The family of this 221-nucleotide RNA from Streptomyces sp. Ru72 is "Actinobacteria sRNA Ms_IGR-5". A search with the family's covariance model found it, with a score of 92 bits. The organism belongs to Streptomyces, within Bacteria.
RNA sequence: ACACGGAAGGGAGGUGGUUCGGCAGAUGUAUGACAUCCGGACGCGUGAGGUGGCUGCGGGCUAGCGGCCCGCCGUCGUACUCAGUUCGGCGCCGGACCAGCGCGUGCGAGAUGCGCGCAGCCGGCCAAUCCAACGCAGUCACCCGGCCCGCGGGCUCGCCGGUACGUCCGGCCGGCUCCUUCGUCCACUGACGGAGGACCUGAGCUCGCGGGCCGUCUGCG
Number, nucleotide and partner (000 for none) at each position: 001a000002c000003a000004c000005g000006g000007a000008a000009g000010g000011g000012a000013g000014g057015u056016g055017g054018u053019u000020c000021g000022g000023c000024a000025g000026a000027u000028g000029u000030a000031u000032g000033a000034c000035a000036u000037c000038c000039g000040g000041a000042c000043g000044c000045g000046u000047g000048a000049g000050g000051u000052g000053g018054c017055u016056g015057c014058g000059g126060g125061c124062u123063a000064g121065c120066g000067g118068c117069c000070c115071g114072c113073c000074g000075u000076c000077g000078u000079a000080c000081u000082c000083a000084g000085u000086u000087c000088g000089g000090c000091g000092c000093c000094g000095g000096a000097c000098c000099a000100g000101c000102g000103c000104g000105u000106g000107c000108g000109a000110g000111a000112u000113g072114c071115g070116c000117g068118c067119a000120g065121c064122c000123g062124g061125c060126c059127a000128a000129u000130c000131c000132a000133a000134c000135g000136c000137a000138g000139u000140c000141a000142c000143c000144c215145g214146g213147c212148c211149c210150g209151c208152g207153g206154g205155c204156u203157c000158g176159c175160c174161g173162g172163u171164a000165c000166g000167u000168c000169c000170g000171g163172c162173c161174g160175g159176c158177u000178c000179c000180u000181u000182c000183g000184u000185c000186c000187a000188c000189u000190g000191a000192c000193g000194g000195a000196g000197g000198a000199c000200c000201u000202g000203a156204g155205c154206u153207c152208g151209c150210g149211g148212g147213c146214c145215g144216u000217c000218u000219g000220c000221g000